[Rfam]
RNA: ASpks TB sRNA
Organism: Streptomyces sp. MA5143a
RNA sequence: CUUCAACGACCCCAGGUACAGCGGCCGCUCGCGGUCCUGCCCGUAGGUGGCGAGGAGCGCGUGCGCCUC
Numbered sequence: 001c002u003u004c005a006a007c008g009a010c011c012c013c014a015g016g017u018a019c020a021g022c023g024g025c026c027g028c029u030c031g032c033g034g035u036c037c038u039g040c041c042c043g044u045a046g047g048u049g050g051c052g053a054g055g056a057g058c059g060c061g062u063g064c065g066c067c068u069c
Stems, first nucleotide, its partner, number of pairs: 015025001017023001028065001030063001032059002037054002041050003